Rfam assigns this 84-nucleotide sequence from Pongo abelii to the family "mir-548 microRNA precursor family". Taxonomically the source falls in Pongo (Eukaryota, Bilateria, Eutheria, Haplorrhini). The base pairs follow the family's consensus structure, which was predicted with WAR. The family has 11 seed sequences and 3,009 matches in Rfam 15.1.
RNA sequence: UAUUAAGUUGAUGCAAAAGUAGUUGCGGUUUUUGCCGUUGAAAGUAAUGGCAAAAACCGCAAUUACUUUUGCAUCAACCUAAUA
Numbered sequence: 001u002a003u004u005a006a007g008u009u010g011a012u013g014c015a016a017a018a019g020u021a022g023u024u025g026c027g028g029u030u031u032u033u034g035c036c037g038u039u040g041a042a043a044g045u046a047a048u049g050g051c052a053a054a055a056a057c058c059g060c061a062a063u064u065a066c067u068u069u070u071g072c073a074u075c076a077a078c079c080u081a082a083u084a
Stems, first nucleotide, its partner, number of pairs: 001084005007078034